[Rfam]
Source information:
Rfam assigns this 599-nucleotide part of an RNA from Ostreococcus sp. 'lucimarinus' to the family "Eukaryotic large subunit ribosomal RNA". The base pairs follow the family's consensus structure, which is taken from published work. The organism belongs to Ostreococcus sp. 'lucimarinus', within Eukaryota.
RNA sequence: AACGGCGGGGAAAGAAGACCCUGUUGAGCUUGACUCUAGUCCGACUUUGUGAAACAACUUAGGAGGUGUAGAAUAAGUGGGAGCUUCGGCGACUGUGAAAUACCACUACUCUUAACGUUGUUUUACUUAUUCCAUGAGGUGGAGGCGGGUUUCGGCCCUGCUUCUAGCCCUAAGCUUCGGCGAUCCAGGUGGAAGACAUUGUCAGGUGGGGAGUUUGGCUGGGGCGGCACAUCUGUUAAAAGAUAACGCAGGUGUCCUAAGAUGAGCUCAAAGAGAACAGAAAUCUCUUGUUGAACAAAAGGGUAAAAGCUCAUUUGAUUUUGGCUUUCAGUACUAGCACAAACUGUGAAAGCAUGGCCUAUCGAUCCUUUAGCUAGUCGGAAUUUGACGCUAGAGGUGUCAGAAAAGUUACCACAGGGAUAACUGGCUUGUGGCAGCCAAGCGUUCAUAGCGACGUUGCUUUUUGAUCCUUCGAUGUCGGCUCUUCCUAUCAUUGCGAAGCAGAAUUCGCCAAGUGUAGGAUUGUUCACCCACCAAUAGGGAACGUGAGCUGGGUUUAGACCGUCGUGAGACAGGUUAGUUUUACCCUACCGUUGGUC
Number, nucleotide and partner (000 for none) at each position: 001a595002a594003c593004g592005g591006c000007g000008g589009g588010g587011a000012a584013a583014g000015a000016a000017g000018a000019c000020c418021c417022u416023g415024u000025u414026g413027a410028g409029c408030u407031u406032g000033a214034c213035u212036c211037u000038a000039g000040u206041c205042c000043g203044a202045c201046u000047u000048u000049g126050u125051g124052a123053a122054a121055c120056a119057a118058c117059u115060u114061a113062g112063g111064a110065g109066g000067u000068g000069u000070a000071g000072a000073a000074u000075a000076a107077g106078u105079g104080g103081g000082a000083g090084c089085u000086u000087c000088g000089g084090c083091g000092a000093c000094u000095g000096u000097g000098a000099a000100a000101u000102a000103c080104c079105a078106c077107u076108a000109c065110u064111c063112u062113u061114a060115a059116c000117g058118u057119u056120g055121u054122u053123u052124u051125a050126c049127u000128u000129a000130u194131u193132c192133c191134a190135u000136g000137a000138g000139g000140u187141g186142g185143a184144g000145g000146c000147g000148g157149g156150u000151u000152u000153c000154g000155g000156c149157c148158c000159u000160g000161c000162u000163u000164c000165u000166a000167g000168c000169c000170c000171u000172a000173a000174g181175c000176u000177u000178c000179g000180g000181c174182g000183a000184u143185c142186c141187a140188g000189g000190u134191g133192g132193a131194a130195g000196a000197c000198a000199u000200u000201g045202u044203c043204a000205g041206g040207u000208g000209g000210g000211g036212a035213g034214u033215u000216u000217g230218g228219c227220u226221g000222g000223g000224g000225c000226g220227g219228c218229a000230c217231a253232u252233c251234u250235g249236u248237u000238a000239a000240a000241a000242g000243a000244u000245a000246a000247c000248g236249c235250a234251g233252g232253u231254g000255u000256c357257c356258u000259a000260a000261g000262a314263u313264g312265a311266g310267c309268u294269c293270a000271a289272a288273g287274a286275g285276a284277a000278c000279a000280g000281a000282a000283a000284u276285c275286u274287c273288u272289u271290g000291u000292u000293g269294a268295a304296c303297a000298a000299a000300a000301g000302g000303g296304u295305a000306a000307a000308a000309g267310c266311u265312c264313a263314u262315u000316u000317g000318a000319u343320u342321u341322u000323g000324g338325c337326u336327u000328u000329c000330a000331g000332u000333a000334c000335u000336a326337g325338c324339a000340c000341a321342a320343a319344c000345u354346g353347u352348g000349a000350a000351a000352g347353c346354a345355u000356g257357g256358c000359c000360u000361a000362u000363c000364g000365a000366u000367c000368c396369u395370u394371u393372a392373g391374c000375u000376a000377g389378u388379c387380g000381g000382a000383a000384u000385u000386u000387g379388a378389c377390g000391c373392u372393a371394g370395a369396g368397g000398u000399g000400u000401c000402a000403g000404a000405a000406a031407a030408g029409u028410u027411a000412c000413c026414a025415c023416a022417g021418g020419g000420a000421u000422a000423a000424c000425u000426g000427g468428c000429u466430u000431g465432u000433g461434g460435c459436a458437g457438c456439c000440a000441a000442g452443c451444g000445u000446u000447c000448a000449u000450a000451g443452c442453g000454a000455c000456g438457u437458u436459g435460c434461u433462u000463u000464u000465u431466g429467a000468u427469c000470c000471u000472u000473c000474g000475a000476u000477g000478u000479c554480g552481g551482c550483u549484c546485u543486u542487c541488c540489u539490a000491u000492c517493a516494u000495u000496g511497c510498g509499a508500a507501g000502c000503a000504g000505a000506a000507u500508u499509c498510g497511c496512c000513a000514a000515g000516u493517g492518u000519a000520g532521g531522a000523u529524u000525g000526u000527u000528c000529a523530c000531c521532c520533a000534c000535c000536a000537a000538u000539a489540g488541g487542g486543a485544a000545c000546g484547u000548g000549a483550g482551c481552u480553g000554g479555g000556u000557u000558u000559a000560g578561a577562c576563c575564g573565u572566c571567g000568u000569g000570a000571g566572a565573c564574a000575g563576g562577u561578u560579a000580g000581u000582u000583u013584u012585a000586c000587c010588c009589u008590a000591c005592c004593g003594u002595u001596g000597g000598u000599c000